[Rfam]
RNA sequence: GGUUUCUAUUAGUGAAAAUUCAAUCAUCUCAAUUUUCAAAUGAAAUUGUGAAAGAAUUCCCCAUUGGUAGCAAAUGAUUAGCCGUUAAGCAGGGGAAAUCU
Numbered sequence: 001g002g003u004u005u006c007u008a009u010u011a012g013u014g015a016a017a018a019u020u021c022a023a024u025c026a027u028c029u030c031a032a033u034u035u036u037c038a039a040a041u042g043a044a045a046u047u048g049u050g051a052a053a054g055a056a057u058u059c060c061c062c063a064u065u066g067g068u069a070g071c072a073a074a075u076g077a078u079u080a081g082c083c084g085u086u087a088a089g090c091a092g093g094g095g096a097a098a099u100c101u
Stems, first nucleotide, its partner, number of pairs: 009023002012020001059094003063085002066082001068080003
The family of this 101-nucleotide sequence from Passiflora serratodigitata is "Plastid-rps12 3UTR RNA". Rfam's curators put it in the seed alignment. About the family: Plastid rpl20 is a non-coding RNA (ncRNA) recognised in plastids.